[Rfam]
RNA sequence: UAGUAUCUAAAAGCGCCAGGGCUAUUUCUAUGAACGGACUAAAUAGAAAUAGUUGACGAGGAGAAGGUUUCAUCGAAUAAUCGGCGGGUGCCUUCCAGUUGAAUGUCAUCUCAACUGACACGUUUUACGUGAAAACAUAGAGGCGACUCUAUGCACAACCACAUAAAACAAGAUGACAC
Numbered sequence: 001u002a003g004u005a006u007c008u009a010a011a012a013g014c015g016c017c018a019g020g021g022c023u024a025u026u027u028c029u030a031u032g033a034a035c036g037g038a039c040u041a042a043a044u045a046g047a048a049a050u051a052g053u054u055g056a057c058g059a060g061g062a063g064a065a066g067g068u069u070u071c072a073u074c075g076a077a078u079a080a081u082c083g084g085c086g087g088g089u090g091c092c093u094u095c096c097a098g099u100u101g102a103a104u105g106u107c108a109u110c111u112c113a114a115c116u117g118a119c120a121c122g123u124u125u126u127a128c129g130u131g132a133a134a135a136c137a138u139a140g141a142g143g144c145g146a147c148u149c150u151a152u153g154c155a156c157a158a159c160c161a162c163a164u165a166a167a168a169c170a171a172g173a174u175g176a177c178a179c
Stems, first nucleotide, its partner, number of pairs: 020054008029045003063095005073084004096117006122169006136153007